[Rfam]
RNA sequence: GACUAAAGAUAAAAAUUAUAGCAUUAGUCUAUAAUUUUAUCUCCCUAGCUUCGCUAGUUCUCUACCGACACCAAUCCAGGUGCGUCUGCCACCAAGUUGGCUACCCUUCCUAGGGGCGCUUUCGCGCUUGCUCACCAUUAGAUUACCUGGAAACCAGCCAUUCAGGUUGGAGUUUCCCCAGGCUCUUUUGUGUGGGCAUUAGCGGCUUGUGGUUUUUGCACAAAAUCUAAGCUACUUACCGUUCCUCUGACCAUCCACCACUUCUAUAGACAGCACUGAUUA
Numbered sequence: 001g002a003c004u005a006a007a008g009a010u011a012a013a014a015a016u017u018a019u020a021g022c023a024u025u026a027g028u029c030u031a032u033a034a035u036u037u038u039a040u041c042u043c044c045c046u047a048g049c050u051u052c053g054c055u056a057g058u059u060c061u062c063u064a065c066c067g068a069c070a071c072c073a074a075u076c077c078a079g080g081u082g083c084g085u086c087u088g089c090c091a092c093c094a095a096g097u098u099g100g101c102u103a104c105c106c107u108u109c110c111u112a113g114g115g116g117c118g119c120u121u122u123c124g125c126g127c128u129u130g131c132u133c134a135c136c137a138u139u140a141g142a143u144u145a146c147c148u149g150g151a152a153a154c155c156a157g158c159c160a161u162u163c164a165g166g167u168u169g170g171a172g173u174u175u176c177c178c179c180a181g182g183c184u185c186u187u188u189u190g191u192g193u194g195g196g197c198a199u200u201a202g203c204g205g206c207u208u209g210u211g212g213u214u215u216u217u218g219c220a221c222a223a224a225a226u227c228u229a230a231g232c233u234a235c236u237u238a239c240c241g242u243u244c245c246u247c248u249g250a251c252c253a254u255c256c257a258c259c260a261c262u263u264c265u266a267u268a269g270a271c272a273g274c275a276c277u278g279a280u281u282a
Stems, first nucleotide, its partner, number of pairs: 007042006014036007045057005066084002069082004129198006140186003154170006
RNA: Deltacoronavirus 5'UTR